The family of this 356-nucleotide sequence from Janthinobacterium sp. 17J80-10 is "Bacterial RNase P class A". Its family is annotated with ribonuclease P activity, tRNA processing and dimeric ribonuclease P complex in the Gene Ontology. A search with the family's covariance model found it, with a score of 216 bits.

RNA sequence: GAAGCAAGCCAGACAGCCGCUGGCCGGGGGCAUUCAUGCCGCCGGCGGGAGGAAGGUCCGGACUCCACAGAGCAGGGUGACGGUUAACGGCCGUCCGCUGAAAGCCUGGCCGGCGCAAGCCGGGAGGGUAUAAGGCGAGGAACAGGGCCACAGAGACGAGCGUAUUCAGUUACGGUGAAACGCGGUAACCUCCACCCGGAGCAAUUCCAAAUAGGCACGCGUUGAUGUUGCUCGCGGAGCGUGCGGGUAGGAAGCUUGAGCCAUGGAGUAAUUCAUGGCCUAGAGGAAUGGCUGUCAUAGCCGCCAGGGAAACUUGUCGGCCGUAACAGAAUCCGGCCUAUCGGCUUGCUUUAUUU
Numbered sequence: 001g002a003a004g005c006a007a008g009c010c011a012g013a014c015a016g017c018c019g020c021u022g023g024c025c026g027g028g029g030g031c032a033u034u035c036a037u038g039c040c041g042c043c044g045g046c047g048g049g050a051g052g053a054a055g056g057u058c059c060g061g062a063c064u065c066c067a068c069a070g071a072g073c074a075g076g077g078u079g080a081c082g083g084u085u086a087a088c089g090g091c092c093g094u095c096c097g098c099u100g101a102a103a104g105c106c107u108g109g110c111c112g113g114c115g116c117a118a119g120c121c122g123g124g125a126g127g128g129u130a131u132a133a134g135g136c137g138a139g140g141a142a143c144a145g146g147g148c149c150a151c152a153g154a155g156a157c158g159a160g161c162g163u164a165u166u167c168a169g170u171u172a173c174g175g176u177g178a179a180a181c182g183c184g185g186u187a188a189c190c191u192c193c194a195c196c197c198g199g200a201g202c203a204a205u206u207c208c209a210a211a212u213a214g215g216c217a218c219g220c221g222u223u224g225a226u227g228u229u230g231c232u233c234g235c236g237g238a239g240c241g242u243g244c245g246g247g248u249a250g251g252a253a254g255c256u257u258g259a260g261c262c263a264u265g266g267a268g269u270a271a272u273u274c275a276u277g278g279c280c281u282a283g284a285g286g287a288a289u290g291g292c293u294g295u296c297a298u299a300g301c302c303g304c305c306a307g308g309g310a311a312a313c314u315u316g317u318c319g320g321c322c323g324u325a326a327c328a329g330a331a332u333c334c335g336g337c338c339u340a341u342c343g344g345c346u347u348g349c350u351u352u353a354u355u356u
Base pairs, nucleotide, nucleotide: 001352002351003350004349005348006347007346008345009344010343011341012296013295014294015293016292017291018290020049021048023046024045025044026043027042054339055338056337058336059335060334061333062332063201064200065199066198070233071232072231073230075197076196077195078194079193080094081093082092083091084090095139096137097136098135099134140192141191145190146189147186148185149184161174162173163172164171205253206252207251208250215244216243217242218241219240220239226236227235228234260279261278262277263276264275265274266273267272

The source organism's lineage runs through Bacteria, Pseudomonadota, Burkholderiales, Oxalobacteraceae and Janthinobacterium.